[Rfam]
RNA sequence: GCUGUGCUGGAUCUGUCAGGACUGCAGGAACAGCUGCUGGGCUCUGUCUGUGACAAUGGGGCAAAGAGCAAGUGGCUAUUUCUCUACUCAGUUUUCAGAAGCCAGUGAGCACUAAGAAUGGAAUAUAGCUUGACACUU
Number, nucleotide and partner (000 for none) at each position: 001g000002c000003u063004g062005u061006g000007c059008u058009g057010g000011a000012u000013c000014u000015g000016u000017c000018a000019g000020g000021a000022c000023u000024g051025c050026a049027g048028g000029a000030a000031c000032a000033g000034c000035u000036g000037c000038u000039g000040g000041g000042c000043u000044c000045u000046g000047u000048c027049u026050g025051u024052g000053a000054c000055a000056a000057u009058g008059g007060g000061g005062c004063a003064a000065a000066g000067a000068g000069c000070a000071a000072g000073u000074g130075g129076c128077u000078a000079u000080u000081u000082c121083u120084c000085u000086a000087c116088u115089c000090a000091g000092u111093u000094u109095u108096c107097a106098g000099a000100a000101g000102c000103c000104a000105g000106u097107g096108a095109g094110c000111a092112c000113u000114a000115a088116g087117a000118a000119u000120g083121g082122a000123a000124u000125a000126u000127a000128g076129c075130u074131u000132g000133a000134c000135a000136c000137u000138u000
RNA: Small nucleolar RNA SNORA43